[Rfam]
A member of the RNA family "Mitochondrial DNA control region secondary structure A" from Colobus angolensis, 106 nucleotides long. The match comes from Rfam's covariance-model search (73 bits). The organism belongs to Colobus angolensis, within Eukaryota. A reference for the family is Pereira et al. (2008), "Evidence for variable selective pressures at a large secondary structure of the human mitochondrial DNA control region", Mol Biol Evol. Pairs were carried over by alignment from the consensus structure, which is taken from published work.
RNA sequence: AUAUUCUAUGGUGUGCAACCUUUAAAGAACAACUUAAGUACUAAUUUAUUUUAACAUGCCCUCAUGUAAUUCGUGCAUUACUGCUAGCCAACAUGAAUAUUAUAUA
Numbered sequence: 001a002u003a004u005u006c007u008a009u010g011g012u013g014u015g016c017a018a019c020c021u022u023u024a025a026a027g028a029a030c031a032a033c034u035u036a037a038g039u040a041c042u043a044a045u046u047u048a049u050u051u052u053a054a055c056a057u058g059c060c061c062u063c064a065u066g067u068a069a070u071u072c073g074u075g076c077a078u079u080a081c082u083g084c085u086a087g088c089c090a091a092c093a094u095g096a097a098u099a100u101u102a103u104a105u106a
Base pairs, nucleotide, nucleotide: 005097007095008094009093010092011089015084016083017082023037025035026034027033038059039058042054044052064078065077066076067075068074